[Rfam]
RNA sequence: UCCCGGGGCUUUGCCUUGACGGGGAUUUGCAAGGUCUUUAGACUCUUGUACCCCGAAAUUUGGCAGGGUUUUGCCCUGCCAUUUUGUUUAUGUCGAAAGACAACAGUGGAGCUAUAGA
Numbered sequence: 001u002c003c004c005g006g007g008g009c010u011u012u013g014c015c016u017u018g019a020c021g022g023g024g025a026u027u028u029g030c031a032a033g034g035u036c037u038u039u040a041g042a043c044u045c046u047u048g049u050a051c052c053c054c055g056a057a058a059u060u061u062g063g064c065a066g067g068g069u070u071u072u073g074c075c076c077u078g079c080c081a082u083u084u085u086g087u088u089u090a091u092g093u094c095g096a097a098a099g100a101c102a103a104c105a106g107u108g109g110a111g112c113u114a115u116a117g118a
Base pairs, nucleotide, nucleotide: 004018005017006016007015008014009013022053023052024051027048029046031044035040061081062080063079064078065077066076067075068074069073092101093100094099
RNA: Pseudomonas rpsL leader
Organism: Pseudomonas sp. HAR-UPW-AIA-41